[Rfam]
Purine riboswitch aptamer: a 98-nucleotide RNA from Clostridium novyi. The base pairs follow the family's consensus structure, which is taken from published work. NCBI's taxonomy places the organism under Bacteria, Bacillota, Eubacteriales, Clostridiaceae, Clostridium novyi.

RNA sequence: GCAGAGAAAUAAAAUAUCACUUAUAUAUACCCUGGAUAUGGCAGGGAGUUUCUACCGGAAACCUAAAAUUUCCGACUAUGAGUGAGUGGACUUGUUGC
Numbered sequence: 001g002c003a004g005a006g007a008a009a010u011a012a013a014a015u016a017u018c019a020c021u022u023a024u025a026u027a028u029a030c031c032c033u034g035g036a037u038a039u040g041g042c043a044g045g046g047a048g049u050u051u052c053u054a055c056c057g058g059a060a061a062c063c064u065a066a067a068a069u070u071u072c073c074g075a076c077u078a079u080g081a082g083u084g085a086g087u088g089g090a091c092u093u094g095u096u097g098c
Base pairs, nucleotide, nucleotide: 018084019083020082021081022080023079024078025077030046031045032044033043034042056074057073058072059071060070061069